Small Cajal body specific RNA 21: a 139-nucleotide RNA from Catagonus wagneri. It is annotated as a small Cajal body RNA. Gene Ontology terms of the family: RNA processing, Cajal body and nucleolus. It scores 127 bits against the family's covariance model. From the family's description: scaRNAs are a specific class of small nuclear RNAs which localise to the Cajal bodies and guide the modification of RNA polymerase II transcribed spliceosomal RNAs U1, U2, U4, U5 and U12. ACA68 (SCARNA21) is a member of the H/ACA class of snoRNAs that guide the sites of modification of uridines to pseudouridines. This snoRNA was identified by computational screening and its expression in mouse experimentally verified by Northern blot and primer extension analysis. The family's consensus secondary structure was predicted with RNAalifold. A reference for the family is Darzacq et al. (2002), "Cajal body-specific small nuclear RNAs: a novel class of 2'-O-methylation and pseudouridylation guide RNAs", EMBO J.

[Rfam]
RNA sequence: CGGCUCGGUUUCCUGGGGGGUGGGCGCAGCCUGUCCCACCUCCCCUCAGACGGGCCUAGAGCACAGAGGCCGGCCUGCCUCCCCCGGGGGCGAGGCUGUUAAGACCAGAGCCUCUCCCGGGCUGUCCUGCCUCACAUUU
Number, nucleotide and partner (000 for none) at each position: 001c000002g056003g055004c054005u053006c052007g051008g000009u000010u000011u000012c000013c000014u000015g044016g043017g042018g041019g040020g039021u038022g037023g036024g035025c000026g000027c000028a000029g000030c000031c000032u000033g000034u000035c024036c023037c022038a021039c020040c019041u018042c017043c016044c015045c000046u000047c000048a000049g000050a000051c007052g006053g005054g004055c003056c002057u000058a000059g000060a000061g000062c000063a000064c000065a000066g133067a132068g131069g130070c129071c000072g127073g126074c000075c000076u000077g000078c121079c120080u119081c000082c000083c000084c000085c000086g000087g114088g113089g112090g111091c000092g000093a000094g000095g000096c000097u000098g000099u000100u000101a000102a000103g000104a000105c000106c000107a000108g000109a000110g000111c090112c089113u088114c087115u000116c000117c000118c000119g080120g079121g078122c000123u000124g000125u000126c073127c072128u000129g070130c069131c068132u067133c066134a000135c000136a000137u000138u000139u000